RNA sequence: GUCGAUCGGUCGCCGCGCCCAUCCGUCCCUCAAAGCGGCGAUCGGUUCUCAGGCAAGUCCUGCGGAGACGCGCCGCCUCCCCCAGGCGGCGCGUC
Numbered sequence: 001g002u003c004g005a006u007c008g009g010u011c012g013c014c015g016c017g018c019c020c021a022u023c024c025g026u027c028c029c030u031c032a033a034a035g036c037g038g039c040g041a042u043c044g045g046u047u048c049u050c051a052g053g054c055a056a057g058u059c060c061u062g063c064g065g066a067g068a069c070g071c072g073c074c075g076c077c078u079c080c081c082c083c084a085g086g087c088g089g090c091g092c093g094u095c
Base pairs, nucleotide, nucleotide: 004047005046006045007044008043009042010041011040012039013038014037015036016035067095068094069093070092071091072090073089074088075087076086077085078084
Dot-bracket structure: ...(((((((((((((..................)))))))))))))...................((((((((((((.....))))))))))))
Notes:
The family of this 95-nucleotide sequence from Caulobacter vibrioides is "caulobacter sRNA CC1840". By type it is a small RNA. Taxonomically the source falls in Caulobacter vibrioides (Bacteria, Pseudomonadota, Alphaproteobacteria, Caulobacterales). The sequence is in the family's curated seed alignment. For this family Rfam cites "Small non-coding RNAs in Caulobacter crescentus" (Landt et al., Mol Microbiol, 2008). Pairs were carried over by alignment from the consensus structure.